[Rfam]
Nucleotides: 086
Base pairs, nucleotide, nucleotide: 001086002085003084004083005082006081007080008079009078011076012075016071017070018069019068020067021066022065023064024063025062026061027060028059029058030057031056032055033054034053035052036051037050038049039048040047041046
Number, partner (000 for none) and nucleotide at each position: 001086g002085g003084a004083g005082a006081a007080g008079g009078g010000g011076g012075u013000c014000g015000c016071c017070g018069a019068g020067g021066a022065u023064c024063g025062c026061c027060g028059a029058u030057c031056u032055g033054c034053u035052g036051c037050a038049g039048g040047u041046a042000a043000a044000c045000u046041u047040a048039c049038c050037u051036g052035c053034a054033g055032c056031a057030g058029a059028u060027c061026g062025g063024c064023g065022a066021u067020c068019c069018u070017c071016g072000g073000c074000g075012a076011c077000c078009c079008c080007c081006u082005u083004c084003u085002c086001c
Shown here is an 86-nucleotide RNA from Xenopus laevis, a member of the family "Epstein-Barr virus stable intronic sequence RNA 2". By type it is a non-coding RNA gene. NCBI's taxonomy places the organism under Eukaryota, Eumetazoa, Deuterostomia, Tetrapoda, Xenopus.